[Rfam]
RNA sequence: AUAUUAUGAGGUGAUGGAGCUCACUUAUAUGCCUUGUCGAGGCUAAUAGCUCCUACCAAUAU
Dot-bracket structure: .........[[[[..((((((]]]].....((((.....))))....)))))).........
A member of the RNA family "Fluoride riboswitch aptamer (crcB RNA motif)" from Pelotomaculum isophthalicicum, 62 nucleotides long.
Pairs were carried over by alignment from the consensus structure, which is taken from published work.